Rfam assigns this 83-nucleotide sequence from Myotis lucifugus to the family "mir-574 microRNA precursor family". On this family, see Lui et al., Cancer Res 2007: "Patterns of known and novel small RNAs in human cervical cancer". Its Rfam clan is "mir-574 microRNA precursor clan". The base pairs follow the family's consensus structure, which was predicted with RNAalifold. NCBI's taxonomy places the organism under Eukaryota, Laurasiatheria, Chiroptera, Yangochiroptera, Myotis.
[Rfam]
RNA sequence: AGACCUGUAGAGAGAGAGGCAGGGUCUGAUUCACAGCCUCUGUGGCAGCUGUUGAUCAUCCAUUUCCUCUCUCUUUUUCUCCA
Numbered sequence: 001a002g003a004c005c006u007g008u009a010g011a012g013a014g015a016g017a018g019g020c021a022g023g024g025u026c027u028g029a030u031u032c033a034c035a036g037c038c039u040c041u042g043u044g045g046c047a048g049c050u051g052u053u054g055a056u057c058a059u060c061c062a063u064u065u066c067c068u069c070u071c072u073c074u075u076u077u078u079c080u081c082c083a
Stems, first nucleotide, its partner, number of pairs: 010075010021064002024061001027058005034051004
Dot-bracket structure: .........((((((((((.((.(..(((((..((((..........))))..)))))..).)).))))))))))........